[Rfam]
Source information
A member of the RNA family "Streptomyces-metK RNA" from Streptomyces paludis, 121 nucleotides long. It scores 102 bits against the family's covariance model. Lineage of the source: Bacteria > Actinomycetota > Actinomycetes > Kitasatosporales > Streptomyces.

RNA sequence: ACGAGACACGUGCCCCCGUGACCCGAUUCGACCGAUAAAGUGGUCGAGAGGAUCGUCUUGGGGCCGCAGCCCCCCGCCGGUCCGCCAAUGAUCAGCCAGCAGCCGCUGCAACCACAGGGAG
Numbered sequence: 001a002c003g004a005g006a007c008a009c010g011u012g013c014c015c016c017c018g019u020g021a022c023c024c025g026a027u028u029c030g031a032c033c034g035a036u037a038a039a040g041u042g043g044u045c046g047a048g049a050g051g052a053u054c055g056u057c058u059u060g061g062g063g064c065c066g067c068a069g070c071c072c073c074c075c076g077c078c079g080g081u082c083c084g085c086c087a088a089u090g091a092u093c094a095g096c097c098a099g100c101a102g103c104c105g106c107u108g109c110a111a112c113c114a115c116a117g118g119g120a121g
Stems, first nucleotide, its partner, number of pairs: 050083006058076001060075004097108004